[Rfam]
The record is a 54-nucleotide RNA sequence from Hucho hucho, which matches "UnaL2 LINE 3' element" in Rfam. Pairs were carried over by alignment from the consensus structure, which is taken from published work. The literature on the family includes a 2004 paper in RNA by Baba et al., "Solution structure of an RNA stem-loop derived from the 3' conserved region of eel LINE UnaL2". Rfam links the family to the GO term transposition, RNA-mediated.

RNA sequence: CCUAAUCGCUUCUGUAAGUCGCUCUGUAUAAGAGCAUCUGCUAAAUGACUUAAA
Numbered sequence: 001c002c003u004a005a006u007c008g009c010u011u012c013u014g015u016a017a018g019u020c021g022c023u024c025u026g027u028a029u030a031a032g033a034g035c036a037u038c039u040g041c042u043a044a045a046u047g048a049c050u051u052a053a054a
Stems, first nucleotide, its partner, number of pairs: 013043001014041003021035005